This 150-nucleotide RNA from Erwinia billingiae belongs to the Rfam family "STAXI RNA". Lineage of the source: Bacteria > Pseudomonadati > Gammaproteobacteria > Erwiniaceae > Erwinia billingiae. It scores 76 bits against the family's covariance model. The family's RNA type in Rfam is small RNA. The family's consensus secondary structure is taken from published work.
RNA sequence: CGUUGUCUUCGGACAACCACCAAUGGUCAGUGGCUUGAGAUGACCGCCUUCGGGUAGCUGAAAUAACACUCCUGUAGCCUGAAAGGGAGAACACAUCAGUGUGGUACAUCUGCUCACCUUUGGAAGCAGAUAUCGUCAAUCACGGCUCCU
Dot-bracket structure: .((((((....)))))).......(((((.[[[[[.....)))))(((....)))]]]]]........((((.[[[.[[......)))).(((......)))]]]]].(((((...[[.[.....))))).((.....)).].]].....